The family of this 71-nucleotide sequence from Nicotiana sylvestris is "Plastid-psbA-1 3UTR RNA". A reference for the family is Richter et al. (2023), "Retrograde signaling in plants: A critical review focusing on the GUN pathway and beyond", Plant Commun. It scores 54 bits against the family's covariance model.
[Rfam]
RNA sequence: AUAGGAGGUUUUGAAAAGAAAGGAGCAAUAAUCAUUUUCUUGUUCUAUCAAGAGAGUGCUAUUACUCCUUU
Number, nucleotide and partner (000 for none) at each position: 001a000002u000003a000004g000005g000006a000007g000008g000009u000010u000011u000012u000013g000014a000015a000016a000017a000018g000019a071020a070021a069022g068023g067024a066025g065026c000027a063028a062029u061030a060031a000032u000033c058034a057035u056036u000037u054038u053039c052040u051041u050042g000043u000044u000045c000046u000047a000048u000049c000050a041051a040052g039053a038054g037055a000056g035057u034058g033059c000060u030061a029062u028063u027064a000065c025066u024067c023068c022069u021070u020071u019
NCBI's taxonomy places the organism under Eukaryota, Streptophytina, Mesangiospermae, Pentapetalae, Nicotiana. By type it is a cis-regulatory element.